[Rfam]
This 164-nucleotide RNA sequence from Dryobates pubescens belongs to the Rfam family "U1 spliceosomal RNA". Rfam describes the family as follows. U1 is a small nuclear RNA (snRNA) component of the spliceosome (involved in pre-mRNA splicing). The family has 100 seed sequences and 40,184 matches in Rfam 15.1. Clan: U1 clan.
Nucleotides: 164
Base pairs, nucleotide, nucleotide: 014120015119016048017047019045020044021043023042026039027038049090050089051088052087054086056083057082060079061078062077063076094115095113096112097111099109100108138163139162140161141160142159143158146155147154
Number, partner (000 for none) and nucleotide at each position: 001000a002000u003000a004000u005000u006000u007000a008000c009000c010000u011000g012000u013000c014120a015119g016048g017047g018000g019045a020044g021043a022000c023042a024000g025000c026039a027038u028000g029000a030000u031000c032000a033000g034000g035000c036000a037000g038027g039026u040000c041000g042023u043021u044020u045019u046000g047017c048016c049090a050089g051088g052087g053000u054086g055000a056083g057082g058000g059000u060079c061078a062077u063076c064000c065000u066000u067000u068000g069000c070000a071000c072000u073000c074000c075000a076063g077062g078061u079060g080000u081000g082057c083056u084000g085000a086054c087052c088051c089050c090049u091000g092000c093000a094115a095113u096112u097111u098000c099109c100108c101000c102000a103000a104000a105000u106000g107000u108100g109099g110000g111097a112096a113095a114000c115094u116000c117000a118000a119015c120014u121000a122000c123000a124000u125000a126000a127000u128000u129000c130000a131000u132000g133000g134000u135000g136000g137000u138163g139162g140161g141160g142159g143158a144000c145000u146155g147154c148000a149000u150000u151000c152000a153000c154147g155146c156000u157000c158143u159142c160141c161140u162139c163138u164000g